Shown here is a 222-nucleotide sequence, a member of the family "Small nucleolar RNA SNORA73 family".

[Rfam]
RNA sequence: CCAACGUGGAUAUCUCAUGAGGUUACUCUCAUGGGCUCUGUCUUGGUGGCGUAUGGGAGCGUCGCCCUGUGAGGCGCAGUGAUGUAUAAUCCCCUUCCACAACGUUGGAGAACAAGCAUGUCCCCGGCCAUUCGGUUGGUGUGGGCAGCACACUGUAUAUUCCUACAACUUCCCAGAGCCGUCGGGCAGUGACCGGGGAGACAAACCAUGCAGGAUACAUUA
Number, nucleotide and partner (000 for none) at each position: 001c108002c107003a106004a105005c104006g103007u102008g043009g042010a041011u040012a039013u000014c035015u034016c033017a000018u000019g028020a027021g026022g000023u000024u000025a000026c021027u020028c019029u000030c000031a000032u000033g016034g015035g014036c000037u000038c000039u012040g011041u010042c009043u008044u000045g000046g100047u099048g098049g097050c000051g000052u000053a000054u000055g093056g092057g091058a090059g087060c000061g085062u084063c000064g080065c079066c000067c000068u000069g000070u000071g000072a000073g000074g000075c000076g000077c000078a000079g065080u064081g000082a000083u000084g062085u061086a000087u059088a000089a000090u058091c057092c056093c055094c000095u000096u000097c049098c048099a047100c046101a000102a007103c006104g005105u004106u003107g002108g001109a000110g000111a000112a000113c000114a000115a000116g000117c000118a000119u000120g000121u000122c000123c000124c000125c000126g000127g000128c000129c000130a000131u000132u000133c000134g000135g000136u000137u000138g000139g000140u000141g000142u000143g000144g000145g000146c000147a000148g000149c000150a000151c000152a000153c213154u212155g211156u210157a209158u208159a000160u000161u000162c000163c000164u000165a000166c000167a000168a000169c200170u199171u198172c197173c196174c195175a000176g000177a000178g187179c186180c185181g000182u000183c000184g000185g180186g179187c178188a000189g000190u000191g000192a000193c000194c000195g174196g173197g172198g171199a170200g169201a000202c000203a000204a000205a000206c000207c000208a158209u157210g156211c155212a154213g153214g000215a000216u000217a000218c000219a000220u000221u000222a000
The family's RNA type in Rfam is H/ACA-box small nucleolar RNA.
It is one of the family's seed sequences.
The family's consensus secondary structure is taken from published work.
Its Rfam clan is "snR30-U17 clan".
A reference for the family is Enright et al. (1996), "5'ETS rRNA processing facilitated by four small RNAs: U14, E3, U17, and U3", RNA.
Rfam describes the family as follows. U17 (SNORA73A and SNORA73B) also known as E1 belongs to the H/ACA class of small nucleolar RNAs (snoRNAs). Vertebrate U17 is intron-encoded and ranges in length from 200-230 nucleotides, longer than most snoRNAs. It is one of the most abundant snoRNAs in human cells and is essential for the cleavage of pre-rRNA within the 5' external transcribed spacer (ETS).